[Rfam]
Notes: c-di-AMP riboswitch aptamer (ydaO/yuaA leader): a 200-nucleotide RNA sequence from Streptomyces nodosus. A search with the family's covariance model found it, with a score of 56 bits. NCBI's taxonomy places the organism under Bacteria, Bacillati, Actinomycetota, Kitasatosporales, Streptomyces.
Nucleotides: 200
Stems, first nucleotide, its partner, number of pairs: 011185004018059008060180006070110001111165003119141003144159004
Number, partner (000 for none) and nucleotide at each position: 001000g002000c003000g004000a005000g006000c007000g008000g009000a010000a011185u012184g013183c014182c015000g016000a017000a018059u019058c020057c021056u022055g023054c024053c025052g026000c027000c028000g029000c030000u031000c032000g033000a034000g035000g036000c037000u038000c039000c040000u041000u042000c043000u044000a045000c046000a047000c048000a049000c050000g051000a052025c053024g054023g055022c056021a057020g058019g059018a060180g061179c062178g063177g064176g065175g066000g067000a068000c069000c070110c071000a072000g073000g074000u075000a076000a077000g078000c079000c080000g081000c082000c083000g084000c085000a086000c087000c088000g089000g090000a091000c092000a093000c094000c095000g096000u097000u098000c099000c100000g101000g102000a103000g104000c105000g106000g107000c108000u109000c110070g111165g112164g113163g114000u115000g116000a117000a118000g119141c120140c121139g122000c123000g124000u125000c126000u127000c128000g129000a130000c131000a132000c133000c134000g135000a136000g137000a138000c139121c140120g141119g142000c143000c144159g145158g146157g147156c148000a149000c150000c151000u152000c153000c154000c155000c156147g157146c158145c159144c160000g161000a162000a163113c164112c165111c166000g167000a168000c169000a170000g171000c172000u173000c174000a175065c176064c177063u178062c179061g180060c181000a182014g183013g184012c185011a186000u187000c188000g189000g190000a191000g192000a193000g194000g195000a196000a197000a198000a199000c200000g